RNA: Small nucleolar RNA Z107/R87
RNA sequence: AGUGGCUGUGAAGACUUGGAAAUAUUCAAGCUCAACAGACCGAAUCACAUGUCUAUCUCUAUAGAUGAGAUUGAUCUGUAUGUCGAUUAUCCCGCUGAACCGAGCCAUA
Numbered sequence: 001a002g003u004g005g006c007u008g009u010g011a012a013g014a015c016u017u018g019g020a021a022a023u024a025u026u027c028a029a030g031c032u033c034a035a036c037a038g039a040c041c042g043a044a045u046c047a048c049a050u051g052u053c054u055a056u057c058u059c060u061a062u063a064g065a066u067g068a069g070a071u072u073g074a075u076c077u078g079u080a081u082g083u084c085g086a087u088u089a090u091c092c093c094g095c096u097g098a099a100c101c102g103a104g105c106c107a108u109a
Stems, first nucleotide, its partner, number of pairs: 002108005